The record is a 186-nucleotide RNA from a Rhodospirillales bacterium, which matches "permuted transfer-messenger RNA" in Rfam. Bacterial tmRNA, also known as 10Sa RNA or SsrA, is named for its dual tRNA and mRNA-like properties. It is one of the family's seed sequences. The family's RNA type in Rfam is non-coding RNA gene.

[Rfam]
RNA sequence: GGUUGUAAUUCCGGCAAACCGGAAGCAUGUCGGACGGCGGUUCGAUUCCGCCCAUCUCCAUAUCAGGGGGGAUGACCUGGUUUCGACGGCGUGAAUGAGGGCGAGCAGGCAACCCGAGAGGCGACGGACGUAAUCCGCGCAAAUCAAGCAAAUGCCAACGAUGAGCAAUUUGCUGUAGCCGCCUAA
Numbered sequence: 001g002g003u004u005g006u007a008a009u010u011c012c013g014g015c016a017a018a019c020c021g022g023a024a025g026c027a028u029g030u031c032g033g034a035c036g037g038c039g040g041u042u043c044g045a046u047u048c049c050g051c052c053c054a055u056c057u058c059c060a061u062a063u064c065a066g067g068g069g070g071g072a073u074g075a076c077c078u079g080g081u082u083u084c085g086a087c088g089g090c091g092u093g094a095a096u097g098a099g100g101g102c103g104a105g106c107a108g109g110c111a112a113c114c115c116g117a118g119a120g121g122c123g124a125c126g127g128a129c130g131u132a133a134u135c136c137g138c139g140c141a142a143a144u145c146a147a148g149c150a151a152a153u154g155c156c157a158a159c160g161a162u163g164a165g166c167a168a169u170u171u172g173c174u175g176u177a178g179c180c181g182c183c184u185a186a
Base pairs, nucleotide, nucleotide: 001114002113003112004111005110015103026093027092028091030089031088032087036052037051038050039049040048053074054073055072056071057070058069059068115130116129

On this family, see Williams and Bartel, RNA 1996: "Phylogenetic analysis of tmRNA secondary structure". Gene Ontology term of the family: RNA catabolic process.